[Rfam]
RNA sequence: ACAACAUUCGGACCGUCGGUCUACUGAGCAAUCUCACCCGCUCAUUGGAAGAUCCUCCUUUCGUCCG
Numbered sequence: 001a002c003a004a005c006a007u008u009c010g011g012a013c014c015g016u017c018g019g020u021c022u023a024c025u026g027a028g029c030a031a032u033c034u035c036a037c038c039c040g041c042u043c044a045u046u047g048g049a050a051g052a053u054c055c056u057c058c059u060u061u062c063g064u065c066c067g
Base pairs, nucleotide, nucleotide: 004064005063010058011057012056015053016052017051020049021048022047023046025044026043027042028041029040
RNA: mir-2774 microRNA precursor family
Organism: Bombyx mori